[Rfam]
RNA: MIR6288 microRNA precursor family
Organism: Prunus dulcis
RNA sequence: UCAAAAUUAGCCACUUAUUACUUUCUAAUCGGUUUUAAUGUGUUAAAUUUUUUUAAGAACCAAUUAGAUACUGACAAGUGGCUAGUUUUGA
Numbered sequence: 001u002c003a004a005a006a007u008u009a010g011c012c013a014c015u016u017a018u019u020a021c022u023u024u025c026u027a028a029u030c031g032g033u034u035u036u037a038a039u040g041u042g043u044u045a046a047a048u049u050u051u052u053u054u055a056a057g058a059a060c061c062a063a064u065u066a067g068a069u070a071c072u073g074a075c076a077a078g079u080g081g082c083u084a085g086u087u088u089u090g091a
Stems, first nucleotide, its partner, number of pairs: 002090015018074003022070001024068006031061004035056004